A member of the RNA family "Mammalian CPEB3 ribozyme" from Crocodylus porosus, 75 nucleotides long.
RNA sequence: ACUGCAAGUUUGAGGCCAUAGCAGAAGCACUGAUAGCACGGUCCGUCAGAUUUUGAUGAAUCUGUGAAUUCUGCU
Numbered sequence: 001a002c003u004g005c006a007a008g009u010u011u012g013a014g015g016c017c018a019u020a021g022c023a024g025a026a027g028c029a030c031u032g033a034u035a036g037c038a039c040g041g042u043c044c045g046u047c048a049g050a051u052u053u054u055g056a057u058g059a060a061u062c063u064g065u066g067a068a069u070u071c072u073g074c075u
Stems, first nucleotide, its partner, number of pairs: 014043004020075007027039001047064007

The match comes from Rfam's covariance-model search (42 bits).